Notes: The family of this 544-nucleotide part of an RNA from Methanolacinia petrolearia is "Archaeal large subunit ribosomal RNA". Its family is annotated with ribosome and structural constituent of ribosome in the Gene Ontology. The family's consensus secondary structure is taken from published work. The source organism's lineage runs through Archaea, Methanobacteriati, Methanobacteriota, Methanolacinia and Methanolacinia petrolearia.

RNA sequence: UUACGUUCUGCCUGUCAGUGAAUGGCUCGGUUCGAGUGCCGAUGAAGGGCGUGCCAAGCUGCGAUAAGCUCCGGGAAGACGCAAGGAUUCUAUGAUCCGGAGAUACCCUAAUGGGACAUCCUGUAGUCUUUUGACUACGAUUGGUAACAAUCGGUAACCCCCCGAAUUGAAACAUCUCAGUAGGGGGAGGAAGAGAAAUCAAACGAGAUGUCGUAAGUAAAGGCGAUCGAAAGCGACAGAGUUCAAACUGAAUCCCGCAAGGGAGAUGUGGUGUUAUAGGCCCACUGUUCGCACAUGAUUUGAAAUGGAAUUUGUUCUGGAACGUCAAACCAGAGAGGGUGACAGUCCCGUACAUGUAAGAAUCCUGUGUAUAUGUGGAGUCCUGAGUAGCGCGGGUUGGCAUUCUCGCGUGAAUUUGGGGGUCAUCAACCUCCAAAACUAAAUACUCCUCGAAACCGAUAGCGCAUUAGUAGCGUGAGCGAAAGCUGAAAAGUAACCCUGGAAAGGUGGUGAAUAAGUGCCUGAAACUGGCAGGCGAUGGUGU
Numbered sequence: 001u002u003a004c005g006u007u008c009u010g011c012c013u014g015u016c017a018g019u020g021a022a023u024g025g026c027u028c029g030g031u032u033c034g035a036g037u038g039c040c041g042a043u044g045a046a047g048g049g050c051g052u053g054c055c056a057a058g059c060u061g062c063g064a065u066a067a068g069c070u071c072c073g074g075g076a077a078g079a080c081g082c083a084a085g086g087a088u089u090c091u092a093u094g095a096u097c098c099g100g101a102g103a104u105a106c107c108c109u110a111a112u113g114g115g116a117c118a119u120c121c122u123g124u125a126g127u128c129u130u131u132u133g134a135c136u137a138c139g140a141u142u143g144g145u146a147a148c149a150a151u152c153g154g155u156a157a158c159c160c161c162c163c164g165a166a167u168u169g170a171a172a173c174a175u176c177u178c179a180g181u182a183g184g185g186g187g188a189g190g191a192a193g194a195g196a197a198a199u200c201a202a203a204c205g206a207g208a209u210g211u212c213g214u215a216a217g218u219a220a221a222g223g224c225g226a227u228c229g230a231a232a233g234c235g236a237c238a239g240a241g242u243u244c245a246a247a248c249u250g251a252a253u254c255c256c257g258c259a260a261g262g263g264a265g266a267u268g269u270g271g272u273g274u275u276a277u278a279g280g281c282c283c284a285c286u287g288u289u290c291g292c293a294c295a296u297g298a299u300u301u302g303a304a305a306u307g308g309a310a311u312u313u314g315u316u317c318u319g320g321a322a323c324g325u326c327a328a329a330c331c332a333g334a335g336a337g338g339g340u341g342a343c344a345g346u347c348c349c350g351u352a353c354a355u356g357u358a359a360g361a362a363u364c365c366u367g368u369g370u371a372u373a374u375g376u377g378g379a380g381u382c383c384u385g386a387g388u389a390g391c392g393c394g395g396g397u398u399g400g401c402a403u404u405c406u407c408g409c410g411u412g413a414a415u416u417u418g419g420g421g422g423u424c425a426u427c428a429a430c431c432u433c434c435a436a437a438a439c440u441a442a443a444u445a446c447u448c449c450u451c452g453a454a455a456c457c458g459a460u461a462g463c464g465c466a467u468u469a470g471u472a473g474c475g476u477g478a479g480c481g482a483a484a485g486c487u488g489a490a491a492a493g494u495a496a497c498c499c500u501g502g503a504a505a506g507g508u509g510g511u512g513a514a515u516a517a518g519u520g521c522c523u524g525a526a527a528c529u530g531g532c533a534g535g536c537g538a539u540g541g542u543g544u
Base pairs, nucleotide, nucleotide: 009537010536011535012534013533014532015531016530017529018528024522025486026485029457030456031454032453033452034451035450036449038446046109047108048107049106050063051062052061069102070101071100072099073098074097078090079089113122114121115120140151141150142149143148158189159187160186161185162184163183169176170175199206200205210237211236212235213234214233221227240440241439242438243437248271249270250269253264254263255262256261282378283377284376285375291370292369293368294367305355306354307353311328313327314326317324331335337349338348339347390411391410392409393408394407395406396405418434419433420432421431422430473480474479